Annotation
The family of this 100-nucleotide RNA from Bacillus sp. cl95 is "Purine riboswitch aptamer". Taxonomically the source falls in Bacillus (Bacteria, Bacillati, Bacillota, Bacilli). About the family: Riboswitches are metabolite binding domains within certain messenger RNAs that serve as precision sensors for their corresponding targets.
RNA sequence: AAAUUACAUCGCUAUUAUCCUUGUAUAAUAUCAGUGAAAAUGGUCUGAUUGUUUCUACCUGGCAGCCGGAUGCCAGACUACAGGGAAGUAUGAUUGAAAA
Numbered sequence: 001a002a003a004u005u006a007c008a009u010c011g012c013u014a015u016u017a018u019c020c021u022u023g024u025a026u027a028a029u030a031u032c033a034g035u036g037a038a039a040a041u042g043g044u045c046u047g048a049u050u051g052u053u054u055c056u057a058c059c060u061g062g063c064a065g066c067c068g069g070a071u072g073c074c075a076g077a078c079u080a081c082a083g084g085g086a087a088g089u090a091u092g093a094u095u096g097a098a099a100a
Stems, first nucleotide, its partner, number of pairs: 018086008030049005059076006